[Rfam]
RNA: Potassium channel RNA editing signal
Organism: Aquarana catesbeiana
RNA sequence: GUGGGCUAUGGUGACAUGUAUCCACUGACCAUUGGUGGCAAGAUAGUAGGUUCUCUGUGUGCCAUAGCUGGUGUGCUAACCAUUGCCCUCCCAGUCCCUGUCAUUGUCUCCAAU
Numbered sequence: 001g002u003g004g005g006c007u008a009u010g011g012u013g014a015c016a017u018g019u020a021u022c023c024a025c026u027g028a029c030c031a032u033u034g035g036u037g038g039c040a041a042g043a044u045a046g047u048a049g050g051u052u053c054u055c056u057g058u059g060u061g062c063c064a065u066a067g068c069u070g071g072u073g074u075g076c077u078a079a080c081c082a083u084u085g086c087c088c089u090c091c092c093a094g095u096c097c098c099u100g101u102c103a104u105u106g107u108c109u110c111c112a113a114u
Stems, first nucleotide, its partner, number of pairs: 001114002004111002008107004013102004018097001020095002037077004049063003